[Rfam]
RNA sequence: AGGACACAGUGCUCCUUUGUUGAACUCCAACGCAGAACCUGUGUUGACUUCAACAGGAGCAGGACUGAGCCCU
Number, nucleotide and partner (000 for none) at each position: 001a000002g071003g070004a000005c069006a000007c067008a066009g065010u064011g000012c000013u061014c000015c059016u058017u057018u055019g054020u053021u052022g051023a050024a049025c000026u047027c046028c000029a044030a000031c043032g042033c041034a000035g000036a000037a000038c000039c000040u000041g033042u032043g031044u029045u000046g027047a026048c000049u024050u023051c022052a021053a020054c019055a018056g000057g017058a016059g015060c000061a013062g000063g000064a010065c009066u008067g007068a000069g005070c003071c002072c000073u000
This 73-nucleotide RNA from Podargus strigoides belongs to the Rfam family "mir-1744 microRNA precursor family". Rfam links the family to the GO terms RISC complex and miRNA-mediated post-transcriptional gene silencing. The source organism's lineage runs through Eukaryota, Sarcopterygii, Dinosauria, Neognathae and Podargus.